[Rfam]
RNA sequence: GUAGUGCUCCGGGGUCAGUGUAAGUCUGAACCGGCGGUGAAAGUCCGCGACCCGGCUCUGCCGCAUAUGUGAUAUGUGCGCUUUGCCGGCUGAAAAGGUGAAAUUCCUUUACCGACGGUUAAAGUCCGGAUGGGAGGCGCACGAA
Numbered sequence: 001g002u003a004g005u006g007c008u009c010c011g012g013g014g015u016c017a018g019u020g021u022a023a024g025u026c027u028g029a030a031c032c033g034g035c036g037g038u039g040a041a042a043g044u045c046c047g048c049g050a051c052c053c054g055g056c057u058c059u060g061c062c063g064c065a066u067a068u069g070u071g072a073u074a075u076g077u078g079c080g081c082u083u084u085g086c087c088g089g090c091u092g093a094a095a096a097g098g099u100g101a102a103a104u105u106c107c108u109u110u111a112c113c114g115a116c117g118g119u120u121a122a123a124g125u126c127c128g129g130a131u132g133g134g135a136g137g138c139g140c141a142c143g144a145a
Stems, first nucleotide, its partner, number of pairs: 004142004009137002016028003030125002032114002034048004043112002052089005094110005116128003
Shown here is a 145-nucleotide RNA from Arcanobacterium sp. S3PF19, a member of the family "FMN riboswitch aptamer (RFN element)". The source organism's lineage runs through Bacteria, Bacillati, Actinomycetes, Actinomycetales and Arcanobacterium. A search with the family's covariance model found it, with a score of 87 bits.